The record is a 140-nucleotide sequence from Robiginitalea myxolifaciens, which matches "SAM riboswitch aptamer (S box leader)" in Rfam. Rfam links the family to the GO term regulation of gene expression.
[Rfam]
RNA sequence: CAGUUAUCGAGAAAGGUGGAGGGAAUAGACCCGGUGAAGCCUUAGCAACCCUUGCGCCGUCCCGGCCAAGAAGGUGCUACAUUCUAUCCUGUUGCCAUGCAGUUCCCGGCGGGAAUUUACUAGCUCAGGGCAGAUAACAC
Numbered sequence: 001c002a003g004u005u006a007u008c009g010a011g012a013a014a015g016g017u018g019g020a021g022g023g024a025a026u027a028g029a030c031c032c033g034g035u036g037a038a039g040c041c042u043u044a045g046c047a048a049c050c051c052u053u054g055c056g057c058c059g060u061c062c063c064g065g066c067c068a069a070g071a072a073g074g075u076g077c078u079a080c081a082u083u084c085u086a087u088c089c090u091g092u093u094g095c096c097a098u099g100c101a102g103u104u105c106c107c108g109g110c111g112g113g114a115a116u117u118u119a120c121u122a123g124c125u126c127a128g129g130g131c132a133g134a135u136a137a138c139a140c
Stems, first nucleotide, its partner, number of pairs: 003138006013043005021032003028085001044078004049074002051070004083132001088129004